[Rfam]
RNA sequence: GGUUGGGCGCAAGCUUCAAGGUUUUUCCUUUCUCAGGGGUGUGAGAAA
Numbered sequence: 001g002g003u004u005g006g007g008c009g010c011a012a013g014c015u016u017c018a019a020g021g022u023u024u025u026u027c028c029u030u031u032c033u034c035a036g037g038g039g040u041g042u043g044a045g046a047a048a
Stems, first nucleotide, its partner, number of pairs: 003019003006015003029048007
Dot-bracket structure: ..((((((....))).))).........(((((((......)))))))
Na+ riboswitch aptamer (DUF1646): a 48-nucleotide sequence from Pediococcus cellicola.
A search with the family's covariance model found it, with a score of 41 bits.
The literature on the family includes a 2022 paper in Nat Chem Biol by White et al., "Na(+) riboswitches regulate genes for diverse physiological processes in bacteria".